[Rfam]
RNA: Small nucleolar RNA snoR31/Z110/Z27
Organism: Artemisia annua
RNA sequence: UGGAAAAGAUGAUGAAACUAUAAUAAUCUUAGGACACCUUCUGACACAGUUUGACAAUGCUGUGUAUGAGAACAUCAUUAUAUCUUUCUGAUUUUCCA
Numbered sequence: 001u002g003g004a005a006a007a008g009a010u011g012a013u014g015a016a017a018c019u020a021u022a023a024u025a026a027u028c029u030u031a032g033g034a035c036a037c038c039u040u041c042u043g044a045c046a047c048a049g050u051u052u053g054a055c056a057a058u059g060c061u062g063u064g065u066a067u068g069a070g071a072a073c074a075u076c077a078u079u080a081u082a083u084c085u086u087u088c089u090g091a092u093u094u095u096c097c098a
Stems, first nucleotide, its partner, number of pairs: 001098007042048002